Shown here is a 131-nucleotide sequence from Occultella aeris, a member of the family "FMN riboswitch aptamer (RFN element)".
[Rfam]
RNA sequence: UCGCGUGCACUGGGGUCGGUGAAAUUCCGAGCCGGCGGUCAUAGUCCGCGACCCGAUGGCCGAAAGGUCAGCGGUUGAUCAGGUGGAACUCCUGGACCGACGGUCAGAGUCCGGAUGGGAAGCGCACGCGA
Numbered sequence: 001u002c003g004c005g006u007g008c009a010c011u012g013g014g015g016u017c018g019g020u021g022a023a024a025u026u027c028c029g030a031g032c033c034g035g036c037g038g039u040c041a042u043a044g045u046c047c048g049c050g051a052c053c054c055g056a057u058g059g060c061c062g063a064a065a066g067g068u069c070a071g072c073g074g075u076u077g078a079u080c081a082g083g084u085g086g087a088a089c090u091c092c093u094g095g096a097c098c099g100a101c102g103g104u105c106a107g108a109g110u111c112c113g114g115a116u117g118g119g120a121a122g123c124g125c126a127c128g129c130g131a
Stems, first nucleotide, its partner, number of pairs: 003129006010122001017029003031110002033099002035049004044097002053074002079095005101113003
About the family: The RFN element is a highly conserved domain that is found frequently in the 5'-untranslated regions of prokaryotic mRNAs that encode for flavin mononucleotide (FMN) biosynthesis and transport proteins.